[Rfam]
Background
The record is a 56-nucleotide sequence from Nitratireductor indicus, which matches "sul1 RNA" in Rfam. The family has 54 seed sequences and 519 matches in Rfam 15.1. By type it is a riboswitch.
RNA sequence: UCUGGACCCGGUGAAACUCCGGGUGGCUCUGCCGGCCGCCGAUCCGCCGGCUCACU
Numbered sequence: 001u002c003u004g005g006a007c008c009c010g011g012u013g014a015a016a017c018u019c020c021g022g023g024u025g026g027c028u029c030u031g032c033c034g035g036c037c038g039c040c041g042a043u044c045c046g047c048c049g050g051c052u053c054a055c056u
Stems, first nucleotide, its partner, number of pairs: 006024006031051006
Dot-bracket structure: .....((((((.......))))))......((((((.........)))))).....

Source information
The organism belongs to Nitratireductor indicus, within Bacteria.